[Rfam]
RNA sequence: GGUAGUCUGAGGGGAAGGUGGCUCCAGUACGAGAGGAACGAGCCGUCGGCGUCUCUGGUCGACCGGUUGUCUGAUAAGGCAUUGCCGGGCAGCUACGCGCUAUGUAUGAUAAAGGCUGAAAGCAUCUAAGCCUGAGGUUUUCCCUGAAAAUAGACUAUCUUUGUGGGAUUUGAGUUGAAGACUUGUUUGAUGGGGUAGGGAUGUGCGCUUCGAGACUUUCUUAGUCGAGUUGUUUAGUCCGCUGCUUCCAAUCGUCCCCAAU
Numbered sequence: 001g002g003u004a005g006u007c008u009g010a011g012g013g014g015a016a017g018g019u020g021g022c023u024c025c026a027g028u029a030c031g032a033g034a035g036g037a038a039c040g041a042g043c044c045g046u047c048g049g050c051g052u053c054u055c056u057g058g059u060c061g062a063c064c065g066g067u068u069g070u071c072u073g074a075u076a077a078g079g080c081a082u083u084g085c086c087g088g089g090c091a092g093c094u095a096c097g098c099g100c101u102a103u104g105u106a107u108g109a110u111a112a113a114g115g116c117u118g119a120a121a122g123c124a125u126c127u128a129a130g131c132c133u134g135a136g137g138u139u140u141u142c143c144c145u146g147a148a149a150a151u152a153g154a155c156u157a158u159c160u161u162u163g164u165g166g167g168a169u170u171u172g173a174g175u176u177g178a179a180g181a182c183u184u185g186u187u188u189g190a191u192g193g194g195g196u197a198g199g200g201a202u203g204u205g206c207g208c209u210u211c212g213a214g215a216c217u218u219u220c221u222u223a224g225u226c227g228a229g230u231u232g233u234u235u236a237g238u239c240c241g242c243u244g245c246u247u248c249c250a251a252u253c254g255u256c257c258c259c260a261a262u
Stems, first nucleotide, its partner, number of pairs: 001159008011145004017047008048101005056095003063088005068081005106140001108138001113133005166257004171185004191250003194246005199240003207233002211229001214226003
Annotation
Rfam assigns this 262-nucleotide part of an RNA from Methanobacterium alkalithermotolerans to the family "Archaeal large subunit ribosomal RNA". For this family Rfam cites "Crystal structure of the ribosome at 5.5 A resolution" (Yusupov et al., Science, 2001). Taxonomically the source falls in Methanobacterium (Archaea, Methanobacteriati, Methanobacteriales, Methanobacteriaceae).